[Rfam]
RNA sequence: UUAUAAGGAAGAAAAAUAAAGGUUCAGUGAAACCCAAAUUUUUAGAUUUGGGUUUUUUUGUACGUAAAAUUUGGAUAUUUACACUGGGCUUUAAGCCCUUUUUUU
Number, nucleotide and partner (000 for none) at each position: 001u000002u000003a000004u000005a000006a000007g000008g000009a000010a000011g000012a000013a000014a000015a000016a000017u000018a000019a000020a000021g000022g000023u000024u000025c000026a000027g000028u000029g056030a055031a054032a053033c052034c051035c050036a049037a048038a047039u046040u000041u000042u000043u000044a000045g000046a039047u038048u037049u036050g035051g034052g033053u032054u031055u030056u029057u000058u000059u000060g000061u000062a000063c000064g000065u000066a000067a000068a000069a000070u000071u000072u000073g000074g000075a000076u000077a000078u000079u000080u000081a000082c000083a000084c000085u000086g098087g097088g096089c095090u000091u000092u000093a000094a000095g089096c088097c087098c086099u000100u000101u000102u000103u000104u000105u000
About this RNA:
Rfam assigns this 105-nucleotide sequence from [Mannheimia] succiniciproducens to the family "Gammaprotebacteria rimP leader". The match comes from Rfam's covariance-model search (48 bits). It is annotated as a cis-regulatory leader.